[Rfam]
RNA sequence: AUAGACACUGAGUGGCCAGAUUGUUAUGAAUUCAGAGGUCAUAAUAAUCUGGCCACUCAGUGUAGAU
Numbered sequence: 001a002u003a004g005a006c007a008c009u010g011a012g013u014g015g016c017c018a019g020a021u022u023g024u025u026a027u028g029a030a031u032u033c034a035g036a037g038g039u040c041a042u043a044a045u046a047a048u049c050u051g052g053c054c055a056c057u058c059a060g061u062g063u064a065g066a067u
Base pairs, nucleotide, nucleotide: 005063006062007061008060009059010058011057012056013055014054015053016052017051019049020048021047022046023045024044025043026042027041028040
The record is a 67-nucleotide sequence from Pipistrellus kuhlii, which matches "mir-9256 microRNA precursor family" in Rfam. The match comes from Rfam's covariance-model search (80 bits).